[Rfam]
Nucleotides: 046
Base pairs, nucleotide, nucleotide: 001020002019003018004017005016006015007014008013033045034044035043036042037041
Number, partner (000 for none) and nucleotide at each position: 001020c002019c003018a004017g005016g006015g007014a008013c009000u010000u011000u012000c013008g014007u015006c016005c017004c018003u019002g020001g021000c022000u023000a024000u025000a026000u027000u028000c029000g030000g031000c032000c033045g034044g035043g036042c037041c038000u039000u040000c041037g042036g043035c044034c045033c046000u

A member of the RNA family "Acido-Lenti-1 RNA" from Bremerella alba, 46 nucleotides long. By type it is a small RNA. A search with the family's covariance model found it, with a score of 50 bits. Pairs were carried over by alignment from the consensus structure, which is taken from published work. Taxonomically the source falls in Bremerella (Bacteria, Planctomycetota, Planctomycetia, Pirellulaceae).